[Rfam]
RNA sequence: GAAUGUUAUAGCUCUUUUAGAGUUUGUCUAGUAGGUUUUCUGACAUUUGCUGGAAAACCCAU
Number, nucleotide and partner (000 for none) at each position: 001g000002a000003a000004u000005g000006u000007u000008a000009u000010a000011g000012c000013u000014c000015u000016u000017u000018u000019a000020g000021a000022g000023u000024u000025u000026g000027u000028c000029u000030a000031g000032u000033a000034g059035g058036u057037u056038u055039u054040c053041u052042g051043a000044c049045a000046u000047u000048u000049g044050c000051u042052g041053g040054a039055a038056a037057a036058c035059c034060c000061a000062u000
A member of the RNA family "U7 small nuclear RNA" from Cavia porcellus, 62 nucleotides long.
Rfam describes the family as follows. Animal histone pre-mRNAs are spliced by a different mechanism than nuclear pre-mRNAs and self-splicing introns. This processing involves the U7 snRNP, which contains only one RNA species: U7. The 5' end of U7 RNA is thought to base-pair to a conserved spacer element downstream of the cleavage site in histone pre-mRNA. This family contains a number of annotated U7 pseudogenes.
NCBI's taxonomy places the organism under Eukaryota, Metazoa, Euteleostomi, Euarchontoglires, Cavia.